[Rfam]
RNA sequence: GCGUCAGCAUCGGGAGAAUCCGGCGCGCGGGGGCAACCCCGUGGGAGCCGGUGCCGAAGGAGCAACCGCCCCGGUAAACUCUCAGGCAACAGGACCGUUGCUGGCGA
Numbered sequence: 001g002c003g004u005c006a007g008c009a010u011c012g013g014g015a016g017a018a019u020c021c022g023g024c025g026c027g028c029g030g031g032g033g034c035a036a037c038c039c040c041g042u043g044g045g046a047g048c049c050g051g052u053g054c055c056g057a058a059g060g061a062g063c064a065a066c067c068g069c070c071c072c073g074g075u076a077a078a079c080u081c082u083c084a085g086g087c088a089a090c091a092g093g094a095c096c097g098u099u100g101c102u103g104g105c106g107a
Stems, first nucleotide, its partner, number of pairs: 006102004011097003020051004053087003056083002060081003066074002